Shown here is a 98-nucleotide RNA from Acetobacterium paludosum, a member of the family "NiCo (Nickel/Cobalt) riboswitch aptamer". Taxonomically the source falls in Acetobacterium (Bacteria, Bacillota, Clostridia, Eubacteriales). For this family Rfam cites "Bacterial riboswitches cooperatively bind Ni(2+) or Co(2+) ions and control expression of heavy metal transporters" (Furukawa et al., Mol Cell, 2015).
[Rfam]
RNA sequence: ACAGUACAAACUGAGCAGGCGAUGCAAUCUUAAAUGAUUCAUGGGGCCGGGCCAUAAAAGUGGCAACAGAUGAACUUAAGCACAUCUGUGGGACAGUA
Numbered sequence: 001a002c003a004g005u006a007c008a009a010a011c012u013g014a015g016c017a018g019g020c021g022a023u024g025c026a027a028u029c030u031u032a033a034a035u036g037a038u039u040c041a042u043g044g045g046g047c048c049g050g051g052c053c054a055u056a057a058a059a060g061u062g063g064c065a066a067c068a069g070a071u072g073a074a075c076u077u078a079a080g081c082a083c084a085u086c087u088g089u090g091g092g093a094c095a096g097u098a
Base pairs, nucleotide, nucleotide: 010097011096012095013094016092018048019047020046022042023041024040026038051064052063053062054061055060066089067088068087069086070085071084
Its family is annotated with cobalt ion binding and metal ion homeostasis in the Gene Ontology.
The family's consensus secondary structure is taken from published work.